[Rfam]
RNA sequence: AGAAAGGCUUCCGCAGCGGCAACGUUCGGAGGCUUUUUUCUUUUGC
Numbered sequence: 001a002g003a004a005a006g007g008c009u010u011c012c013g014c015a016g017c018g019g020c021a022a023c024g025u026u027c028g029g030a031g032g033c034u035u036u037u038u039u040c041u042u043u044u045g046c
Stems, first nucleotide, its partner, number of pairs: 005035008015026004

ctRNA: a 46-nucleotide RNA from Rhizobium sp. RU20A. For this family Rfam cites "Two discrete elements are required for the replication of a repABC plasmid: an antisense RNA and a stem-loop structure" (Venkova-Canova et al., Mol Microbiol, 2004). Rfam classes the family as an antisense RNA. The organism belongs to Rhizobium, within Bacteria. This family represents a group of ctRNAs (or counter-transcribed RNAs) from p42d and related plasmids. ctRNAs are small, highly structured, antisense sequences which are involved in negative regulation. Members of this family are known to bind to the mRNA of repC causing translational repression. This model contains the predicted stem-loop structure followed by a U-rich tract which is proposed to act as a Rho-independent transcriptional terminator.